[Rfam]
RNA sequence: CUUCUACCUGAUUCAAGUAAUCCAGGAUAGGCUGUUUUUUUUACGGCAUAGCCUAUUCCUUGAUUACUUGUUUCAGGAAUGGG
Numbered sequence: 001c002u003u004c005u006a007c008c009u010g011a012u013u014c015a016a017g018u019a020a021u022c023c024a025g026g027a028u029a030g031g032c033u034g035u036u037u038u039u040u041u042u043a044c045g046g047c048a049u050a051g052c053c054u055a056u057u058c059c060u061u062g063a064u065u066a067c068u069u070g071u072u073u074c075a076g077g078a079a080u081g082g083g
Stems, first nucleotide, its partner, number of pairs: 002082002005079001007077005014070009024060002026057008

This 83-nucleotide RNA sequence from Clupea harengus belongs to the Rfam family "mir-26 microRNA precursor family". Its family is annotated with miRNA-mediated post-transcriptional gene silencing and RISC complex in the Gene Ontology. For this family Rfam cites "Identification of tissue-specific microRNAs from mouse" (Lagos-Quintana et al., Curr Biol, 2002). Pairs were carried over by alignment from the consensus structure, which was predicted with RNAalifold. The organism belongs to Clupea, within Eukaryota.